[Rfam]
RNA sequence: AACGGACCCGGCUCGCCGGGUGGCUUGGCCGGGCGCCUAUCCCCCGGAUUACU
Numbered sequence: 001a002a003c004g005g006a007c008c009c010g011g012c013u014c015g016c017c018g019g020g021u022g023g024c025u026u027g028g029c030c031g032g033g034c035g036c037c038u039a040u041c042c043c044c045c046g047g048a049u050u051a052c053u
Base pairs, nucleotide, nucleotide: 006021007020008019009018010017011016029047030046031045032044033043

Rfam assigns this 53-nucleotide RNA from Methyloligella halotolerans to the family "sul1 RNA". It is annotated as a riboswitch. It scores 58 bits against the family's covariance model. Pairs were carried over by alignment from the consensus structure, which is taken from published work.